RNA sequence: GUCCGGCAACGCGACUGGCGGCCGGCGGGUGGGCAACCACCGGGGAGCUGAUCGACGCGCGGAUCGACCGCCUGGGUCCGCAGU
Numbered sequence: 001g002u003c004c005g006g007c008a009a010c011g012c013g014a015c016u017g018g019c020g021g022c023c024g025g026c027g028g029g030u031g032g033g034c035a036a037c038c039a040c041c042g043g044g045g046a047g048c049u050g051a052u053c054g055a056c057g058c059g060c061g062g063a064u065c066g067a068c069c070g071c072c073u074g075g076g077u078c079c080g081c082a083g084u
Base pairs, nucleotide, nucleotide: 004054005053006052009049011048012047015044016043017072018071019070020069021068029040030039031038032037061079062078063077064076065075
Shown here is an 84-nucleotide sequence from Pseudonocardia sulfidoxydans, a member of the family "ZMP/ZTP riboswitch aptamer (pfl RNA motif)". The base pairs follow the family's consensus structure, which is taken from published work. Lineage of the source: Bacteria > Actinomycetes > Pseudonocardiales > Pseudonocardiaceae > Pseudonocardia sulfidoxydans. The match comes from Rfam's covariance-model search (39 bits).